Notes
Shown here is a 123-nucleotide RNA from Gossypium mustelinum, a member of the family "MIR7504 microRNA precursor family". Lineage of the source: Eukaryota > Tracheophyta > Magnoliopsida > Mesangiospermae > Gossypium.
RNA sequence: AAUGGAAAAAUGUCAAAUCAGAUUUUUCUUAUUGAUUUUCAGUUUUUUUCUCUUGAAAAAAAUUUAAAUCCAAUUAAAAAUGCUGAAAAUCAGAGGAAAAAUUUGAUCUGUUAUUCUCCCAUU
Numbered sequence: 001a002a003u004g005g006a007a008a009a010a011u012g013u014c015a016a017a018u019c020a021g022a023u024u025u026u027u028c029u030u031a032u033u034g035a036u037u038u039u040c041a042g043u044u045u046u047u048u049u050c051u052c053u054u055g056a057a058a059a060a061a062a063u064u065u066a067a068a069u070c071c072a073a074u075u076a077a078a079a080a081u082g083c084u085g086a087a088a089a090u091c092a093g094a095g096g097a098a099a100a101a102u103u104u105g106a107u108c109u110g111u112u113a114u115u116c117u118c119c120c121a122u123u
Base pairs, nucleotide, nucleotide: 001123002122003121004120005119007117009115010114011113012112014110015109017107018106019105020104021103022102023101024100025099026098027097029095030094032093033092034091035090036089037088038087039086041084042083045080046079047078048077
Overview: The family's consensus secondary structure was predicted with RNAalifold.